The family of this 76-nucleotide sequence from Danio rerio is "Small nucleolar RNA SNORD103/SNORD85". For this family Rfam cites "RNomics: an experimental approach that identifies 201 candidates for novel, small, non-messenger RNAs in mouse" (Huttenhofer et al., EMBO J, 2001). The family has 41 seed sequences and 1,349 matches in Rfam 15.1. The match comes from Rfam's covariance-model search (59 bits). The family's RNA type in Rfam is C/D-box small nucleolar RNA.
RNA sequence: GUUGGCUGUGAUGACAAACUUGCCCUCUCUGAGAGAGCAGCUCUAUUAUGACAAUCAAAAACUUUGCUGAGCCAAC
Numbered sequence: 001g002u003u004g005g006c007u008g009u010g011a012u013g014a015c016a017a018a019c020u021u022g023c024c025c026u027c028u029c030u031g032a033g034a035g036a037g038c039a040g041c042u043c044u045a046u047u048a049u050g051a052c053a054a055u056c057a058a059a060a061a062c063u064u065u066g067c068u069g070a071g072c073c074a075a076c
Stems, first nucleotide, its partner, number of pairs: 001076006